[Rfam]
RNA sequence: AGGCUACAAGCUUGAGGCCAUAGCAGAAAUGCUUACGGCAUGGUCAUGGCAGAUGCCAACGUAUCUGUGAAUUCUAAG
Numbered sequence: 001a002g003g004c005u006a007c008a009a010g011c012u013u014g015a016g017g018c019c020a021u022a023g024c025a026g027a028a029a030u031g032c033u034u035a036c037g038g039c040a041u042g043g044u045c046a047u048g049g050c051a052g053a054u055g056c057c058a059a060c061g062u063a064u065c066u067g068u069g070a071a072u073u074c075u076a077a078g
Stems, first nucleotide, its partner, number of pairs: 013046001016045004025075004029041003050067007

The family of this 78-nucleotide RNA from Alligator sinensis is "Mammalian CPEB3 ribozyme".
Lineage of the source: Eukaryota > Deuterostomia > Tetrapoda > Sauria > Alligator.
The family's consensus secondary structure is taken from published work.
A search with the family's covariance model found it, with a score of 37 bits.